[Rfam]
RNA: Xanthomonadaceae sRNA asX1
RNA sequence: CACCCAGCGGGGCAGGCGCUUGCGUCGGCCAGCAUUGGAACAGGGGCUGGCCACAGCGCCCGCGGGGAAGCACGAAGGGCCGGAUGUCGGGGGACGUCCGGCCCUUCACCU
Number, nucleotide and partner (000 for none) at each position: 001c000002a000003c066004c065005c064006a000007g063008c062009g061010g060011g059012g057013c056014a000015g000016g025017c024018g023019c000020u000021u000022g000023c018024g017025u016026c000027g052028g051029c050030c049031a048032g047033c000034a000035u044036u043037g000038g000039a000040a000041c000042a000043g036044g035045g000046g000047c032048u031049g030050g029051c028052c027053a000054c000055a000056g013057c012058g000059c011060c010061c009062g008063c007064g005065g004066g003067g000068a000069a000070g000071c000072a000073c000074g000075a106076a105077g104078g103079g102080c101081c100082g099083g098084a097085u096086g095087u094088c093089g000090g000091g000092g000093g088094a087095c086096g085097u084098c083099c082100g081101g080102c079103c078104c077105u076106u075107c000108a000109c000110c000111u000